Notes:
This 111-nucleotide sequence from Aquisalibacillus elongatus belongs to the Rfam family "PyrR binding site". The match comes from Rfam's covariance-model search (68 bits). The source organism's lineage runs through Bacteria, Bacillati, Bacillota, Caryophanales and Aquisalibacillus. It is annotated as a cis-regulatory element. This family represents the PyrR binding site and terminator structure. The family's consensus secondary structure is taken from published work.
RNA sequence: UAAACCUUUAAAUUUAGUCCAGCGAGGCUAGAAAGGUUGUGAACGUAAGCUUGUGAGCCGUAGUAUGCACAAGUAUACCUCUUUGCGACCUUUCGCAAAGAGGUUUUUUUA
Numbered sequence: 001u002a003a004a005c006c007u008u009u010a011a012a013u014u015u016a017g018u019c020c021a022g023c024g025a026g027g028c029u030a031g032a033a034a035g036g037u038u039g040u041g042a043a044c045g046u047a048a049g050c051u052u053g054u055g056a057g058c059c060g061u062a063g064u065a066u067g068c069a070c071a072a073g074u075a076u077a078c079c080u081c082u083u084u085g086c087g088a089c090c091u092u093u094c095g096c097a098a099a100g101a102g103g104u105u106u107u108u109u110u111a
Stems, first nucleotide, its partner, number of pairs: 003038007014031006043074002046071001049068002052065003056061001075106001077104012